[Rfam]
RNA: Small nucleolar RNA SNORA81
Organism: Scyliorhinus torazame
RNA sequence: GACUUCUUCUUAAGCACUCUGCUAAAAUUACAAAAUUCAGGUACCCCUGCCUUUUGUAAUAAUGCUAGUAGAGUACACCGAGGAAGGAGAAAAAUUGCACAGUGUUGCAAAUGAGGCCAGGGUGGACCUCUUAAUGUCCAGUGCUCUUUGUCUCAAGAUUCUGUGCUACAGGU
Dot-bracket structure: ................((.(((((..((((..((...((((....))))...)).....))))..))))).)).......................((((((.(................(.((((..........)))).)................).)))))).......
Numbered sequence: 001g002a003c004u005u006c007u008u009c010u011u012a013a014g015c016a017c018u019c020u021g022c023u024a025a026a027a028u029u030a031c032a033a034a035a036u037u038c039a040g041g042u043a044c045c046c047c048u049g050c051c052u053u054u055u056g057u058a059a060u061a062a063u064g065c066u067a068g069u070a071g072a073g074u075a076c077a078c079c080g081a082g083g084a085a086g087g088a089g090a091a092a093a094a095u096u097g098c099a100c101a102g103u104g105u106u107g108c109a110a111a112u113g114a115g116g117c118c119a120g121g122g123u124g125g126a127c128c129u130c131u132u133a134a135u136g137u138c139c140a141g142u143g144c145u146c147u148u149u150g151u152c153u154c155a156a157g158a159u160u161c162u163g164u165g166c167u168a169c170a171g172g173u
Stems, first nucleotide, its partner, number of pairs: 017073002020070005027063004033054002038049004097166006104159001121142001123140004